Guanidine-I riboswitch aptamer: a 95-nucleotide RNA from Sporomusa sphaeroides. The base pairs follow the family's consensus structure. This family represents a conserved RNA structure found upstream of the ykkC and yxkD genes in Bacillus subtilis and related genes in other bacteria.
RNA sequence: UAACUUGUUUUCUAGGGUUCCGCAGUUCGCUGGUCUGGUCCGAGAGAAAACGCAGUCUAGAGACUGUACCACGGAGGGAUAAAAGCCCGGGAGAA
Numbered sequence: 001u002a003a004c005u006u007g008u009u010u011u012c013u014a015g016g017g018u019u020c021c022g023c024a025g026u027u028c029g030c031u032g033g034u035c036u037g038g039u040c041c042g043a044g045a046g047a048a049a050a051c052g053c054a055g056u057c058u059a060g061a062g063a064c065u066g067u068a069c070c071a072c073g074g075a076g077g078g079a080u081a082a083a084a085g086c087c088c089g090g091g092a093g094a095a
Base pairs, nucleotide, nucleotide: 007051008050009049010048011047012046015041016040020038021037022035023032024031025030052067053066054065055064056063057062070090072093076088077087078086
Source information: The match comes from Rfam's covariance-model search (81 bits). The source organism's lineage runs through Bacteria, Bacillati, Sporomusaceae, Sporomusa and Sporomusa sphaeroides.